[Rfam]
RNA sequence: CCGGUCUCUACCUGACCGGUCUCUACCUGACCGGUCUCUACCUGACCGGACUCUACCUGACCGGUCAGAGAGAGACCGGUCAGGUAGAGACCGGUCAGGUAGAGACCGGUCAGGUAGAGUCCGGUCAG
Numbered sequence: 001c002c003g004g005u006c007u008c009u010a011c012c013u014g015a016c017c018g019g020u021c022u023c024u025a026c027c028u029g030a031c032c033g034g035u036c037u038c039u040a041c042c043u044g045a046c047c048g049g050a051c052u053c054u055a056c057c058u059g060a061c062c063g064g065u066c067a068g069a070g071a072g073a074g075a076c077c078g079g080u081c082a083g084g085u086a087g088a089g090a091c092c093g094g095u096c097a098g099g100u101a102g103a104g105a106c107c108g109g110u111c112a113g114g115u116a117g118a119g120u121c122c123g124g125u126c127a128g
Stems, first nucleotide, its partner, number of pairs: 010115007018107002021104014036089013
The record is a 128-nucleotide RNA from Dissostichus mawsoni, which matches "mraW RNA" in Rfam.
Pairs were carried over by alignment from the consensus structure, which is taken from published work.
The match comes from Rfam's covariance-model search (55 bits).